Source information:
The record is a 100-nucleotide RNA from Enterobacteriaceae bacterium strain FGI 57, which matches "traJ-II RNA" in Rfam.

RNA sequence: GGGCAGGACAUGUAAAGUAGGCCCACCGUAAACGGUGCUUCUACUUUACCUUCCCUUAUUCGCAGCUGGGCUGCUCAACGGAGUCCUGCUCUGCGAGGCU
Numbered sequence: 001g002g003g004c005a006g007g008a009c010a011u012g013u014a015a016a017g018u019a020g021g022c023c024c025a026c027c028g029u030a031a032a033c034g035g036u037g038c039u040u041c042u043a044c045u046u047u048a049c050c051u052u053c054c055c056u057u058a059u060u061c062g063c064a065g066c067u068g069g070g071c072u073g074c075u076c077a078a079c080g081g082a083g084u085c086c087u088g089c090u091c092u093g094c095g096a097g098g099c100u
Base pairs, nucleotide, nucleotide: 001091002090003089004088005087006086007085008084009083012049013048014047015046016045017044019042020041021040024037025036026035027034028033054081055080062074063073064072065071066070
Rfam classes the family as a cis-regulatory element.